[Rfam]
Shown here is a 135-nucleotide sequence from Niallia circulans, a member of the family "FMN riboswitch aptamer (RFN element)".
Its family is annotated with FMN binding in the Gene Ontology.
The RFN element is a highly conserved domain that is found frequently in the 5'-untranslated regions of prokaryotic mRNAs that encode for flavin mononucleotide (FMN) biosynthesis and transport proteins.
It scores 125 bits against the family's covariance model.
RNA sequence: GUCUAUCUUCGGGGCAGGGUGAAAUUCCCGACCGACGGUGAUGAGUUUGUACUCAAAGUCCGUGACCCUACUACGGUAGGUUGAUUUGGUGAAAUUCCAAAACCGACAGUAAAGUCUGGAUGGGAGAAGAUGGAG
Numbered sequence: 001g002u003c004u005a006u007c008u009u010c011g012g013g014g015c016a017g018g019g020u021g022a023a024a025u026u027c028c029c030g031a032c033c034g035a036c037g038g039u040g041a042u043g044a045g046u047u048u049g050u051a052c053u054c055a056a057a058g059u060c061c062g063u064g065a066c067c068c069u070a071c072u073a074c075g076g077u078a079g080g081u082u083g084a085u086u087u088g089g090u091g092a093a094a095u096u097c098c099a100a101a102a103c104c105g106a107c108a109g110u111a112a113a114g115u116c117u118g119g120a121u122g123g124g125a126g127a128a129g130a131u132g133g134a135g
Stems, first nucleotide, its partner, number of pairs: 003133008017029003031115002033105002035063004058103002067080002085101005107118003